[Rfam]
Rfam assigns this 98-nucleotide RNA sequence from Equus caballus to the family "mir-544 microRNA precursor family".
A reference for the family is Chiang et al. (2010), "Mammalian microRNAs: experimental evaluation of novel and previously annotated genes", Genes Dev.

RNA sequence: ACCACCUGGGUAACUUGUUAAAAUGCAGAUUCUAAUUCAGUAGUUCUGGGGUGGAGCCUGAGAUUCUGUAUUUAUACCAAGUCCCCAGGUGAUGUCAG
Numbered sequence: 001a002c003c004a005c006c007u008g009g010g011u012a013a014c015u016u017g018u019u020a021a022a023a024u025g026c027a028g029a030u031u032c033u034a035a036u037u038c039a040g041u042a043g044u045u046c047u048g049g050g051g052u053g054g055a056g057c058c059u060g061a062g063a064u065u066c067u068g069u070a071u072u073u074a075u076a077c078c079a080a081g082u083c084c085c086c087a088g089g090u091g092a093u094g095u096c097a098g
Base pairs, nucleotide, nucleotide: 003091004090005089009085010084014081015080016079017078019076020075021073022072023071025069026068027067028066029065031063032062033061